[Rfam]
Shown here is a 73-nucleotide sequence from Tribolium castaneum, a member of the family "mir-282 microRNA precursor family".
Gene Ontology terms of the family: RISC complex and miRNA-mediated post-transcriptional gene silencing.
The literature on the family includes a 2009 paper in BMC Genomics by Li et al., "Direct sequencing and expression analysis of a large number of miRNAs in Aedes aegypti and a multi-species survey of novel mosquito miRNAs".
RNA sequence: UGUAGAGGUAGCCUCUCCUAGGCUUUGUCUGUGAAUUUGGCCGAGACAUAGCCUGAUUGAGGCUAACUUUAGC
Numbered sequence: 001u002g003u004a005g006a007g008g009u010a011g012c013c014u015c016u017c018c019u020a021g022g023c024u025u026u027g028u029c030u031g032u033g034a035a036u037u038u039g040g041c042c043g044a045g046a047c048a049u050a051g052c053c054u055g056a057u058u059g060a061g062g063c064u065a066a067c068u069u070u071a072g073c
Base pairs, nucleotide, nucleotide: 006068007067009065010064011063012062013061014060021053022052023051024050026048027047028046029045030044